[Rfam]
RNA sequence: AACGUGCUCCGGGGUCAGUGGAAAUCUGAACCGGCGGUGACAGUCCGCGACCCGCGCAAGCGGUUGACAGGGUGGAAUUCCCUGACCGACGGUUAAAGUCCGGAUGGGAGGCGCACGAA
Numbered sequence: 001a002a003c004g005u006g007c008u009c010c011g012g013g014g015u016c017a018g019u020g021g022a023a024a025u026c027u028g029a030a031c032c033g034g035c036g037g038u039g040a041c042a043g044u045c046c047g048c049g050a051c052c053c054g055c056g057c058a059a060g061c062g063g064u065u066g067a068c069a070g071g072g073u074g075g076a077a078u079u080c081c082c083u084g085a086c087c088g089a090c091g092g093u094u095a096a097a098g099u100c101c102g103g104a105u106g107g108g109a110g111g112c113g114c115a116c117g118a119a
Base pairs, nucleotide, nucleotide: 003117004116005115006114007113009111010110016028017027018026030099031098032088033087034048035047036046037045043086044085052063053062068084069083070082071081072080090102091101092100

FMN riboswitch aptamer (RFN element): a 119-nucleotide sequence from Actinobaculum sp. 352. Rfam's curators write: The RFN element is a highly conserved domain that is found frequently in the 5'-untranslated regions of prokaryotic mRNAs that encode for flavin mononucleotide (FMN) biosynthesis and transport proteins. This element is a metabolite-dependent riboswitch that directly binds FMN in the absence of proteins. It scores 94 bits against the family's covariance model.